[Rfam]
RNA sequence: GAGUGAGGUAGAGGCGCGAUAUUUAACAGUCUUUAGAGGAGUUUGAGAAGCUUUGAUACUAAGGAGAAGGAACUGUCGCCGAAGUUAGUAAUAUUUCUCCGUAUUACUUGCUGGGUCUGUAGUUAAGAACUACAGGACUGUCACUAUGAACGUCCUUGUUUAUAGUGGUGAGCUAUCUCAUUA
Numbered sequence: 001g002a003g004u005g006a007g008g009u010a011g012a013g014g015c016g017c018g019a020u021a022u023u024u025a026a027c028a029g030u031c032u033u034u035a036g037a038g039g040a041g042u043u044u045g046a047g048a049a050g051c052u053u054u055g056a057u058a059c060u061a062a063g064g065a066g067a068a069g070g071a072a073c074u075g076u077c078g079c080c081g082a083a084g085u086u087a088g089u090a091a092u093a094u095u096u097c098u099c100c101g102u103a104u105u106a107c108u109u110g111c112u113g114g115g116u117c118u119g120u121a122g123u124u125a126a127g128a129a130c131u132a133c134a135g136g137a138c139u140g141u142c143a144c145u146a147u148g149a150a151c152g153u154c155c156u157u158g159u160u161u162a163u164a165g166u167g168g169u170g171a172g173c174u175a176u177c178u179c180a181u182u183a
Stems, first nucleotide, its partner, number of pairs: 006178006016079006023072002031064006038057001083112003087108008113139002116136008141168010
Dot-bracket structure: .....((((((....((((((.((......((((((.(..................).))))))......)).))))))...(((.((((((((......)))))))).)))((.((((((((.....)))))))).)).((((((((((........))))))))))....)))))).....
A member of the RNA family "Lysine riboswitch aptamer" from Psychrobacillus insolitus, 183 nucleotides long. Rfam's curators write: Riboswitches are metabolite binding domains within certain messenger RNAs that serve as precision sensors for their corresponding targets. Allosteric rearrangement of mRNA structure is mediated by ligand binding, and this results in modulation of gene expression. It scores 114 bits against the family's covariance model.